[Rfam]
RNA: TPP riboswitch aptamer (THI element)
Organism: Streptococcus intermedius
Nucleotides: 088
Base pairs, nucleotide, nucleotide: 006076007075008074009073010072011038012037013036014035016032017024018023044069045068046067047066050063051062052061053060
Number, partner (000 for none) and nucleotide at each position: 001000a002000a003000a004000g005000a006076a007075c008074a009073u010072u011038u012037g013036g014035g015000g016032u017024g018023c019000u020000g021000a022000g023018g024017c025000u026000g027000a028000g029000a030000u031000u032016a033000u034000a035014c036013c037012c038011a039000u040000u041000g042000a043000a044069c045068c046067u047066g048000a049000u050063g051062c052061a053060g054000u055000u056000a057000a058000u059000g060053c061052u062051g063050c064000c065000g066047c067046a068045g069044g070000g071000a072010a073009a074008u075007g076006u077000a078000u079000a080000a081000g082000a083000a084000a085000g086000a087000c088000c